[Rfam]
Notes
A member of the RNA family "Small nucleolar RNA Z155" from Digitaria exilis, 77 nucleotides long. The family's RNA type in Rfam is C/D-box small nucleolar RNA. For this family Rfam cites "The high diversity of snoRNAs in plants: identification and comparative study of 120 snoRNA genes from Oryza sativa" (Chen et al., Nucleic Acids Res, 2003).

RNA sequence: UGUUCAAAAAAAAAAGAUAAGCUUUCACAGAAACUCUUGUGUUGACCAAAAUUCAGACUACAAUUAUCUGAUCAACA
Numbered sequence: 001u002g003u004u005c006a007a008a009a010a011a012a013a014a015a016g017a018u019a020a021g022c023u024u025u026c027a028c029a030g031a032a033a034c035u036c037u038u039g040u041g042u043u044g045a046c047c048a049a050a051a052u053u054c055a056g057a058c059u060a061c062a063a064u065u066a067u068c069u070g071a072u073c074a075a076c077a
Stems, first nucleotide, its partner, number of pairs: 001077004006072001